[Rfam]
Rfam assigns this 200-nucleotide RNA from Brachypodium distachyon to the family "MIR1435 microRNA precursor family". The source organism's lineage runs through Eukaryota, Streptophyta, Streptophytina, Liliopsida and Brachypodium. A search with the family's covariance model found it, with a score of 101 bits.
RNA sequence: AAACUUUGUCCUAAGUCAAACUUCUUAAAAUUUGACCAACUUUAUAAAACAAUUUAUCAACAUCUAGAAUAUCAAUUAGGUAUACUAUGAUAAUAUAUAUCAUGAUGGAUGUAAUUAAACUAAUUUGGAGUCAUAAAUGUUGGUAGAUUUUUCUGUAAAUUUGGUCAAAGUUUCAGAAGUUUGACUUAGGACAAAGUUAG
Dot-bracket structure: ....(((((.(((((((((((((((.....(((((.......((.((((.....(((.(((((.((.....((((.(.............................................).)))).....)).))))).)))...)))).)).........))))).....))))))))))))))).))))).....